[Rfam]
Background
This 221-nucleotide RNA sequence from Geotrypetes seraphini belongs to the Rfam family "Small nucleolar RNA SNORA73 family". Clan: snR30-U17 clan.
RNA sequence: CCAAUGCGGACAUCCAGAGAGGGUACUCUCUUGGCUCUGUCUGUGUGGCAUAAAAGAGCGUAGAGCCCUUGGGCUUCAUGACGUAUGGUCUUGUUCCACAACAUUGGAGAGUGAUGUAGUCCUCGGCCUCCGGGCUGCUGAGGGCUUCAUCCUGUAUAUUCCUAGUACCCCUCAGAGUCUUUGGGCUAUGACUGAGGAGACAAACCAUGCAGGAUACAUUC
Numbered sequence: 001c002c003a004a005u006g007c008g009g010a011c012a013u014c015c016a017g018a019g020a021g022g023g024u025a026c027u028c029u030c031u032u033g034g035c036u037c038u039g040u041c042u043g044u045g046u047g048g049c050a051u052a053a054a055a056g057a058g059c060g061u062a063g064a065g066c067c068c069u070u071g072g073g074c075u076u077c078a079u080g081a082c083g084u085a086u087g088g089u090c091u092u093g094u095u096c097c098a099c100a101a102c103a104u105u106g107g108a109g110a111g112u113g114a115u116g117u118a119g120u121c122c123u124c125g126g127c128c129u130c131c132g133g134g135c136u137g138c139u140g141a142g143g144g145c146u147u148c149a150u151c152c153u154g155u156a157u158a159u160u161c162c163u164a165g166u167a168c169c170c171c172u173c174a175g176a177g178u179c180u181u182u183g184g185g186c187u188a189u190g191a192c193u194g195a196g197g198a199g200a201c202a203a204a205c206c207a208u209g210c211a212g213g214a215u216a217c218a219u220u221c
Stems, first nucleotide, its partner, number of pairs: 001107006008042005014034003018029004045099004054092004058086001060084002063079001151213007168199001170197004177186003
A search with the family's covariance model found it, with a score of 173 bits. For this family Rfam cites "Comparative Structure Analysis of Vertebrate U17 Small Nucleolar RNA (snoRNA)" (Cervelli et al., J Mol Evol, 2002).